[Rfam]
RNA sequence: GUCAUGUUACGUUUGCAAUAAAUAGUGCGUUUACAGUAUUACUAUCAUAAGCAUGUAAAUGCACUGAUUUGUUGUACACGUACAGACU
Number, nucleotide and partner (000 for none) at each position: 001g000002u000003c000004a000005u000006g000007u000008u082009a081010c080011g079012u000013u000014u000015g075016c074017a073018a072019u071020a070021a069022a068023u067024a000025g064026u000027g062028c061029g060030u059031u058032u057033a056034c055035a054036g000037u000038a000039u000040u000041a000042c000043u000044a000045u000046c000047a000048u000049a000050a000051g000052c000053a000054u035055g034056u033057a032058a031059a030060u029061g028062c027063a000064c025065u000066g000067a023068u022069u021070u020071g019072u018073u017074g016075u015076a000077c000078a000079c011080g010081u009082a008083c000084a000085g000086a000087c000088u000
Overview: Rfam assigns this 88-nucleotide RNA from Bursaphelenchus okinawaensis to the family "mir-277 microRNA precursor family". The family has 25 seed sequences and 170 matches in Rfam 15.1. The match comes from Rfam's covariance-model search (44 bits). Taxonomically the source falls in Bursaphelenchus (Eukaryota, Nematoda, Rhabditida, Tylenchina). The base pairs follow the family's consensus structure, which was predicted with RNAalifold. Its family is annotated with RISC complex and miRNA-mediated post-transcriptional gene silencing in the Gene Ontology.